[Rfam]
RNA: U4 spliceosomal RNA
RNA sequence: UUAUUGGUGUAGUGGCAGUAUCAUAGCCUGUGAGGUUGAGCUGAGGCGUGAUCUUUGCUAGUUGAAAACUUUUCCCUGGAUUAUUUUUCCUUUUUAAAGGAGUUCUGGAUUCUUUCUGCAAAG
Numbered sequence: 001u002u003a004u005u006g007g008u009g010u011a012g013u014g015g016c017a018g019u020a021u022c023a024u025a026g027c028c029u030g031u032g033a034g035g036u037u038g039a040g041c042u043g044a045g046g047c048g049u050g051a052u053c054u055u056u057g058c059u060a061g062u063u064g065a066a067a068a069c070u071u072u073u074c075c076c077u078g079g080a081u082u083a084u085u086u087u088u089c090c091u092u093u094u095u096a097a098a099g100g101a102g103u104u105c106u107g108g109a110u111u112c113u114u115u116c117u118g119c120a121a122a123g
Base pairs, nucleotide, nucleotide: 020052021051022050023049024048026047027046028045034042035041036040080110081109082108083106087102088101089100090099091098092097